[Rfam]
RNA sequence: CGGCAGUGAUGACCAUCUUAGGACACCUUUGGAAUUAAACAUGAAACUAAUCAUAAUUCUGAGCCGC
Numbered sequence: 001c002g003g004c005a006g007u008g009a010u011g012a013c014c015a016u017c018u019u020a021g022g023a024c025a026c027c028u029u030u031g032g033a034a035u036u037a038a039a040c041a042u043g044a045a046a047c048u049a050a051u052c053a054u055a056a057u058u059c060u061g062a063g064c065c066g067c
Stems, first nucleotide, its partner, number of pairs: 001066004
RNA: Small nucleolar RNA SNORD58